[Rfam]
Shown here is a 98-nucleotide RNA from Mycoplasma sp. CAG:776, a member of the family "Bacterial small signal recognition particle RNA". The match comes from Rfam's covariance-model search (64 bits). The family's consensus secondary structure is taken from published work. Rfam classes the family as a non-coding RNA gene. Rfam links the family to the GO terms signal recognition particle, plasma membrane targeting and SRP-dependent cotranslational protein targeting to membrane, signal sequence recognition.

RNA sequence: AAAUUAUAUAUGUGCAACAAAUAUAUUGUAAUCUGGUCAGGACCGGAAGGUAGCAGCCACAUCAAUCCCUGUUUGUGUGCACUUUUUUAUUGGGUGAU
Numbered sequence: 001a002a003a004u005u006a007u008a009u010a011u012g013u014g015c016a017a018c019a020a021a022u023a024u025a026u027u028g029u030a031a032u033c034u035g036g037u038c039a040g041g042a043c044c045g046g047a048a049g050g051u052a053g054c055a056g057c058c059a060c061a062u063c064a065a066u067c068c069c070u071g072u073u074u075g076u077g078u079g080c081a082c083u084u085u086u087u088u089a090u091u092g093g094g095u096g097a098u
Stems, first nucleotide, its partner, number of pairs: 004092001006090003010084001012082003015077001017076006025066004034059004042051003